[Rfam]
RNA sequence: UCCCGUUACCGGGGGUGGGGUGAUUAGCCAUGGUCGCACAGAUCAAGCUCAGAUUGCUUACAUGUAAUCUGUGUGGUCAUGAAUAUGACCUCCGCU
Numbered sequence: 001u002c003c004c005g006u007u008a009c010c011g012g013g014g015g016u017g018g019g020g021u022g023a024u025u026a027g028c029c030a031u032g033g034u035c036g037c038a039c040a041g042a043u044c045a046a047g048c049u050c051a052g053a054u055u056g057c058u059u060a061c062a063u064g065u066a067a068u069c070u071g072u073g074u075g076g077u078c079a080u081g082a083a084u085a086u087g088a089c090c091u092c093c094g095c096u
Stems, first nucleotide, its partner, number of pairs: 002013004014096005019090003023086002029081015045059004
RNA: No-Known-Vector Flavivirus 3' UTR cis-acting replication element (CRE)